TPP riboswitch aptamer (THI element): a 108-nucleotide RNA from Sphingomonas lacunae.
The match comes from Rfam's covariance-model search (59 bits).
Rfam links the family to the GO term thiamine pyrophosphate binding.
[Rfam]
RNA sequence: GCCCCAUCCCCGGGGAGCGAGCUUUCGCUGAGAGGGGCGGUUAGCAUCGCCCGACCCGUAGAACCUGAACCCGUUAGCACGGGCGGAGGGAGUGGUCUGGUCCGGCGC
Numbered sequence: 001g002c003c004c005c006a007u008c009c010c011c012g013g014g015g016a017g018c019g020a021g022c023u024u025u026c027g028c029u030g031a032g033a034g035g036g037g038c039g040g041u042u043a044g045c046a047u048c049g050c051c052c053g054a055c056c057c058g059u060a061g062a063a064c065c066u067g068a069a070c071c072c073g074u075u076a077g078c079a080c081g082g083g084c085g086g087a088g089g090g091a092g093u094g095g096u097c098u099g100g101u102c103c104g105g106c107g108c
Stems, first nucleotide, its partner, number of pairs: 006096003010092001011058004017028004035052007064089003070083004